Shown here is a 99-nucleotide sequence from Ligilactobacillus salivarius, a member of the family "TPP riboswitch aptamer (THI element)". About the family: Vitamin B(1) in its active form thiamin pyrophosphate (TPP) is an essential coenzyme that is synthesised by coupling of pyrimidine and thiazole moieties in bacteria. NCBI's taxonomy places the organism under Bacteria, Bacillati, Bacilli, Ligilactobacillus, Ligilactobacillus salivarius. A search with the family's covariance model found it, with a score of 67 bits. The family's consensus secondary structure is taken from published work.
[Rfam]
RNA sequence: GACUAGCACAAGGGGAGCCUUUUUGGCUGAGAGUGAAGUUAUUCAGACCCUUUGAACCUGUUCGUUAAUGCGAGCGUAGGAAUGUGUAGUAAAUCAGAU
Numbered sequence: 001g002a003c004u005a006g007c008a009c010a011a012g013g014g015g016a017g018c019c020u021u022u023u024u025g026g027c028u029g030a031g032a033g034u035g036a037a038g039u040u041a042u043u044c045a046g047a048c049c050c051u052u053u054g055a056a057c058c059u060g061u062u063c064g065u066u067a068a069u070g071c072g073a074g075c076g077u078a079g080g081a082a083u084g085u086g087u088a089g090u091a092a093a094u095c096a097g098a099u
Base pairs, nucleotide, nucleotide: 006087007086008085009084010083011051012050013049014048017027018026019025034045035044036043037042057080058079059078060077061074062073063072064071